[Rfam]
Nucleotides: 033
Stems, first nucleotide, its partner, number of pairs: 003020003010032003
Number, partner (000 for none) and nucleotide at each position: 001000a002000a003020c004019g005018g006000a007000g008000a009000a010032g011031c012030c013000g014000a015000a016000a017000a018005c019004c020003g021000a022000a023000a024000a025000g026000a027000g028000u029000a030012g031011g032010c033000g